[Rfam]
RNA sequence: UCGUCUGGUGGGAUAAUCCUUACCUGUUCCUCCUUUGGAGGGCAGUUAGAACAUGGUGAUUGGAGAUGCAUGAAAUGUGAUUAAUGUCUCUUUGUAAUCAGGACUUCCAACAUCCUGAUUGCUCCUAUCUGAU
Numbered sequence: 001u002c003g004u005c006u007g008g009u010g011g012g013a014u015a016a017u018c019c020u021u022a023c024c025u026g027u028u029c030c031u032c033c034u035u036u037g038g039a040g041g042g043c044a045g046u047u048a049g050a051a052c053a054u055g056g057u058g059a060u061u062g063g064a065g066a067u068g069c070a071u072g073a074a075a076u077g078u079g080a081u082u083a084a085u086g087u088c089u090c091u092u093u094g095u096a097a098u099c100a101g102g103a104c105u106u107c108c109a110a111c112a113u114c115c116u117g118a119u120u121g122c123u124c125c126u127a128u129c130u131g132a133u
Base pairs, nucleotide, nucleotide: 024045025044026043028042029041030040031039032038033037072090073089075087076086077085078083094122095121096120097119098118099117100116101115102114

This 133-nucleotide RNA from Cebus imitator belongs to the Rfam family "U8 small nucleolar RNA".
Rfam 15.1 lists 1,597 matches to the family in 457 species.
By type it is a C/D-box small nucleolar RNA.
On this family, see Hokii et al., Nucleic Acids Res 2010: "A small nucleolar RNA functions in rRNA processing in Caenorhabditis elegans".
Its family is annotated with nucleolus and RNA processing in the Gene Ontology.